RNA sequence: AGGCCGGCGCGAUACUCCCUAUAACAUCCUUUUCAGUAGAUUUCAUUAUCGUGCCGGUUUUCUCAUAUGCAAAGCAAUCCCGCCAAUCAGAUUGGCGGGAUUUUAU
Numbered sequence: 001a002g003g004c005c006g007g008c009g010c011g012a013u014a015c016u017c018c019c020u021a022u023a024a025c026a027u028c029c030u031u032u033u034c035a036g037u038a039g040a041u042u043u044c045a046u047u048a049u050c051g052u053g054c055c056g057g058u059u060u061u062c063u064c065a066u067a068u069g070c071a072a073a074g075c076a077a078u079c080c081c082g083c084c085a086a087u088c089a090g091a092u093u094g095g096c097g098g099g100a101u102u103u104u105a106u
Stems, first nucleotide, its partner, number of pairs: 001060014019039004076102012
This 106-nucleotide sequence from Bacillus subtilis belongs to the Rfam family "Bacillus sRNA ncr1175". The family's consensus secondary structure is taken from published work. The literature on the family includes a 2010 paper in Nucleic Acids Res by Irnov et al., "Identification of regulatory RNAs in Bacillus subtilis". The organism belongs to Bacillus subtilis subsp. subtilis, within Bacteria.